Shown here is a 102-nucleotide sequence from Bacillus sp. SG-1, a member of the family "Purine riboswitch aptamer". Rfam links the family to the GO term purine nucleobase biosynthetic process. The sequence is in the family's curated seed alignment.
RNA sequence: UAAAUAUGGUUUGCAUACCUUCAUAUAUCCUCGAUAAUAUGGUUCGAAAGUCUCUACCGGGUCACCGUAAAUGAUCUGACUAUGAAGGCAGUAUUCAUUUUG
Numbered sequence: 001u002a003a004a005u006a007u008g009g010u011u012u013g014c015a016u017a018c019c020u021u022c023a024u025a026u027a028u029c030c031u032c033g034a035u036a037a038u039a040u041g042g043u044u045c046g047a048a049a050g051u052c053u054c055u056a057c058c059g060g061g062u063c064a065c066c067g068u069a070a071a072u073g074a075u076c077u078g079a080c081u082a083u084g085a086a087g088g089c090a091g092u093a094u095u096c097a098u099u100u101u102g
Stems, first nucleotide, its partner, number of pairs: 018088008031047004058078007